Background
The record is an 80-nucleotide RNA sequence from Paspalum vaginatum, which matches "Small nucleolar RNA U54" in Rfam. On this family, see Chen et al., Nucleic Acids Res 2003: "The high diversity of snoRNAs in plants: identification and comparative study of 120 snoRNA genes from Oryza sativa".
[Rfam]
RNA sequence: AGCUCAGUGAUUGCAGCCAAUUAAAAUGGCAAUAUACGCUAUGCUGAUGUCAGUUUGAUGAAAAAUAAAAGAUGAGAGCU
Numbered sequence: 001a002g003c004u005c006a007g008u009g010a011u012u013g014c015a016g017c018c019a020a021u022u023a024a025a026a027u028g029g030c031a032a033u034a035u036a037c038g039c040u041a042u043g044c045u046g047a048u049g050u051c052a053g054u055u056u057g058a059u060g061a062a063a064a065a066u067a068a069a070a071g072a073u074g075a076g077a078g079c080u
Stems, first nucleotide, its partner, number of pairs: 001080005
Overview: U54 is a C/D box small nucleolar RNA, which acts as a methylation guide for 18S ribosomal RNA in plants. Gene Ontology terms of the family: RNA processing and nucleolus.